[Rfam]
Nucleotides: 173
Stems, first nucleotide, its partner, number of pairs: 011158004018033006034153006044053002054138003062112003115132004
Number, partner (000 for none) and nucleotide at each position: 001000u002000c003000g004000u005000c006000c007000a008000g009000a010000a011158c012157g013156c014155u015000u016000a017000a018033u019032u020031c021030u022029u023028u024000g025000c026000c027000c028023a029022a030021a031020g032019a033018a034153g035152c036151g037150g038149a039148g040000g041000a042000c043000c044053c045052a046000a047000c048000u049000u050000c051000c052045u053044g054138g055137g056136g057000u058000g059000a060000a061000u062112c063111u064110c065000c066000c067000u068000u069000g070000a071000a072000a073000u074000c075000u076000g077000g078000u079000g080000u081000g082000g083000u084000u085000u086000c087000c088000g089000u090000a091000a092000a093000c094000c095000c096000g097000c098000c099000a100000c101000c102000u103000u104000u105000c106000a107000a108000g109000a110064g111063g112062g113000u114000a115132g116131g117130g118129u119000u120000a121000u122000c123000c124000u125000u126000u127000c128000a129118a130117c131116c132115c133000g134000a135000a136056c137055c138054c139000g140000u141000c142000a143000g144000c145000u146000a147000a148039c149038u150037u151036c152035g153034u154000a155014a156013g157012c158011g159000u160000g161000g162000a163000a164000g165000g166000g167000a168000g169000g170000a171000c172000a173000g

About this RNA:
Shown here is a 173-nucleotide RNA sequence from Desulfofundulus thermobenzoicus, a member of the family "c-di-AMP riboswitch aptamer (ydaO/yuaA leader)". The source organism's lineage runs through Bacteria, Bacillati, Bacillota, Eubacteriales and Desulfofundulus. Rfam's curators write: This family represents a conserved RNA structure found upstream of the ydaO and yuaA genes in Bacillus subtilis and related genes in other bacteria. The ydaO/yuaA element is thought to act as a genetic 'off' switch for the ydaO and yuaA genes in its native state. It is believed that the element may be triggered during osmotic shock leading to activation of ydaO, a predicted amino acid transporter gene, and members of the yuaA-yubG operon which code for KtrA and KtrB K+ transporters. It scores 99 bits against the family's covariance model.